The record is a 343-nucleotide sequence from Sphingobium amiense, which matches "Alphaproteobacteria transfer-messenger RNA" in Rfam.
[Rfam]
RNA sequence: CGGCUUGUAAAAGUGUGCGGGCGGGGCCAUAUGGGGACUGCCGGGUUCGCCCGGCUAUGGUGAUAAAUCGUGUCGUGCAAUAGGCGCAGCGGACCCGGGGGCAGUACCCGGCGGCUCCACCACAAAGGCCUUGCAAGGGGCUUUCUGACGGGGCCGAACUAGGAUCGACGUGUGUUGAAAGGCGAUGCUUUUACCCGGCCCGUGUAAGCCGUUAAACUGUGCAAAACUCACAAGUGCCAACGAUAACGAAGCACUCGCCAUUGCAGCGUAAUUGAUGGCCUCACGGCCUGACAUUACUCUAAAAUAGCGCGGUUGAACCCACCGGGCAACAGAAGGGAAUUCA
Numbered sequence: 001c002g003g004c005u006u007g008u009a010a011a012a013g014u015g016u017g018c019g020g021g022c023g024g025g026g027c028c029a030u031a032u033g034g035g036g037a038c039u040g041c042c043g044g045g046u047u048c049g050c051c052c053g054g055c056u057a058u059g060g061u062g063a064u065a066a067a068u069c070g071u072g073u074c075g076u077g078c079a080a081u082a083g084g085c086g087c088a089g090c091g092g093a094c095c096c097g098g099g100g101g102c103a104g105u106a107c108c109c110g111g112c113g114g115c116u117c118c119a120c121c122a123c124a125a126a127g128g129c130c131u132u133g134c135a136a137g138g139g140g141c142u143u144u145c146u147g148a149c150g151g152g153g154c155c156g157a158a159c160u161a162g163g164a165u166c167g168a169c170g171u172g173u174g175u176u177g178a179a180a181g182g183c184g185a186u187g188c189u190u191u192u193a194c195c196c197g198g199c200c201c202g203u204g205u206a207a208g209c210c211g212u213u214a215a216a217c218u219g220u221g222c223a224a225a226a227c228u229c230a231c232a233a234g235u236g237c238c239a240a241c242g243a244u245a246a247c248g249a250a251g252c253a254c255u256c257g258c259c260a261u262u263g264c265a266g267c268g269u270a271a272u273u274g275a276u277g278g279c280c281u282c283a284c285g286g287c288c289u290g291a292c293a294u295u296a297c298u299c300u301a302a303a304a305u306a307g308c309g310c311g312g313u314u315g316a317a318c319c320c321a322c323c324g325g326g327c328a329a330c331a332g333a334a335g336g337g338a339a340u341u342c343a
Stems, first nucleotide, its partner, number of pairs: 040055005059195005070188007085174003089171003095111005112156007196211004202222002207218001310324004315342003320337001

The family's RNA type in Rfam is non-coding RNA gene. Rfam links the family to the GO term RNA catabolic process. Pairs were carried over by alignment from the consensus structure, which is taken from published work. A search with the family's covariance model found it, with a score of 218 bits.